[Rfam]
RNA sequence: AUCGCUAUGGCUUAGUGGGAAAGCGCCAGGCUCAUACCUACUGCUGUGAUCACCUGGAGAUCCCUCGAUCGAAACGAGGUGGCGAUA
Numbered sequence: 001a002u003c004g005c006u007a008u009g010g011c012u013u014a015g016u017g018g019g020a021a022a023g024c025g026c027c028a029g030g031c032u033c034a035u036a037c038c039u040a041c042u043g044c045u046g047u048g049a050u051c052a053c054c055u056g057g058a059g060a061u062c063c064c065u066c067g068a069u070c071g072a073a074a075c076g077a078g079g080u081g082g083c084g085a086u087a
Stems, first nucleotide, its partner, number of pairs: 001086007010024004026057005063079005
RNA: tRNA